[Rfam]
RNA: mir-144 microRNA precursor family
RNA sequence: ACCCGGGGCAGGAUAUCAUCAUAUACUGUAAGUUGGCAAUGAGACACUACAGUAUAGAUGAUGUACUCCCUCGGGAUG
Numbered sequence: 001a002c003c004c005g006g007g008g009c010a011g012g013a014u015a016u017c018a019u020c021a022u023a024u025a026c027u028g029u030a031a032g033u034u035g036g037c038a039a040u041g042a043g044a045c046a047c048u049a050c051a052g053u054a055u056a057g058a059u060g061a062u063g064u065a066c067u068c069c070c071u072c073g074g075g076a077u078g
Base pairs, nucleotide, nucleotide: 007070008069010067011066013064014063015062016061017060018059019058020057022056023055024054025053026052027051028050029049030048032045033044034043